RNA sequence: UCUACCGGCUAAUGGGCUUUAUUAACUUUUAUGCUGAACCAAAACUGCAUAAGUGGUAGAACACUUCAUAGAAACACUUAGCGCUAUUGAGUGUGAUGAAAAUCUGCAAAGUGUAUAAGGUUUAAAAAUUUGGCAUUUAACUGUUAGAAAUAGCGCUUCUAGCAGUUUUUU
Numbered sequence: 001u002c003u004a005c006c007g008g009c010u011a012a013u014g015g016g017c018u019u020u021a022u023u024a025a026c027u028u029u030u031a032u033g034c035u036g037a038a039c040c041a042a043a044a045c046u047g048c049a050u051a052a053g054u055g056g057u058a059g060a061a062c063a064c065u066u067c068a069u070a071g072a073a074a075c076a077c078u079u080a081g082c083g084c085u086a087u088u089g090a091g092u093g094u095g096a097u098g099a100a101a102a103u104c105u106g107c108a109a110a111g112u113g114u115a116u117a118a119g120g121u122u123u124a125a126a127a128a129u130u131u132g133g134c135a136u137u138u139a140a141c142u143g144u145u146a147g148a149a150a151u152a153g154c155g156c157u158u159c160u161a162g163c164a165g166u167u168u169u170u171u
Stems, first nucleotide, its partner, number of pairs: 001060007032049003036045001039133005061114006074094007081156007095104003139167011

Rfam assigns this 171-nucleotide RNA sequence to the family "FuFi-1 RNA". It is annotated as a small RNA. The base pairs follow the family's consensus structure, which is taken from published work. It is one of the family's seed sequences.